A member of the RNA family "Small Cajal body-specific RNA 7" from Nyctibius bracteatus, 318 nucleotides long. Rfam classes the family as a small Cajal body RNA. The base pairs follow the family's consensus structure. The family has 18 seed sequences and 570 matches in Rfam 15.1.
[Rfam]
RNA sequence: UGGAAGUGAUGAAAUAGAGAUAAUUGGAUGUCUCUUUGAAUGGAGUGUGUGAGAGAAAUGGAAUUUAAACCAAGUCAGACUGGGGCAGGGGUGGGGGGAAUGUGUGUGUGCAUGCAUGUGGAGAAAAGGCUUUGAACGGGGGCACUGAUGGUGUGGUGCUGAUUCCGGAGUGCAUCUGAGGCGUGUUGUCAAGUUCUGGGGUUCCACUUUACAACAUUGCCGAUGAUUAAAGCCCAAAAUAAGCCCACCAGGAUAAGCCAAGGCAUCCUAAAUCUCUGACAGGUUCACUAAUGAAAGUGAUCCUGUGAUCUGAUCUGA
Numbered sequence: 001u002g003g004a005a006g007u008g009a010u011g012a013a014a015u016a017g018a019g020a021u022a023a024u025u026g027g028a029u030g031u032c033u034c035u036u037u038g039a040a041u042g043g044a045g046u047g048u049g050u051g052a053g054a055g056a057a058a059u060g061g062a063a064u065u066u067a068a069a070c071c072a073a074g075u076c077a078g079a080c081u082g083g084g085g086c087a088g089g090g091g092u093g094g095g096g097g098g099a100a101u102g103u104g105u106g107u108g109u110g111c112a113u114g115c116a117u118g119u120g121g122a123g124a125a126a127a128g129g130c131u132u133u134g135a136a137c138g139g140g141g142g143c144a145c146u147g148a149u150g151g152u153g154u155g156g157u158g159c160u161g162a163u164u165c166c167g168g169a170g171u172g173c174a175u176c177u178g179a180g181g182c183g184u185g186u187u188g189u190c191a192a193g194u195u196c197u198g199g200g201g202u203u204c205c206a207c208u209u210u211a212c213a214a215c216a217u218u219g220c221c222g223a224u225g226a227u228u229a230a231a232g233c234c235c236a237a238a239a240u241a242a243g244c245c246c247a248c249c250a251g252g253a254u255a256a257g258c259c260a261a262g263g264c265a266u267c268c269u270a271a272a273u274c275u276c277u278g279a280c281a282g283g284u285u286c287a288c289u290a291a292u293g294a295a296a297g298u299g300a301u302c303c304u305g306u307g308a309u310c311u312g313a314u315c316u317g318a
Base pairs, nucleotide, nucleotide: 001317002316003315004314184216185215186214187213188212189211191209193204196201

For this family Rfam cites "Cajal body-specific small nuclear RNAs: a novel class of 2'-O-methylation and pseudouridylation guide RNAs" (Darzacq et al., EMBO J, 2002).